[Rfam]
Rfam assigns this 86-nucleotide RNA from Callithrix jacchus to the family "mir-544 microRNA precursor family". Lineage of the source: Eukaryota > Euteleostomi > Theria > Haplorrhini > Callithrix. For this family Rfam cites "Mammalian microRNAs: experimental evaluation of novel and previously annotated genes" (Chiang et al., Genes Dev, 2010). It scores 68 bits against the family's covariance model.
RNA sequence: ACCACCUGGGGAUCUUGUUAAAAUGAAGAUUCUGAUUUAGAGGUCAGAGGUUGGGCCAUUUUUAACAAGUUCCCAGGUGAUGGUAA
Numbered sequence: 001a002c003c004a005c006c007u008g009g010g011g012a013u014c015u016u017g018u019u020a021a022a023a024u025g026a027a028g029a030u031u032c033u034g035a036u037u038u039a040g041a042g043g044u045c046a047g048a049g050g051u052u053g054g055g056c057c058a059u060u061u062u063u064a065a066c067a068a069g070u071u072c073c074c075a076g077g078u079g080a081u082g083g084u085a086a
Base pairs, nucleotide, nucleotide: 003079004078005077009073010072011071014069015068016067017066018065019064020063021061022060023059025056029052031050032049033048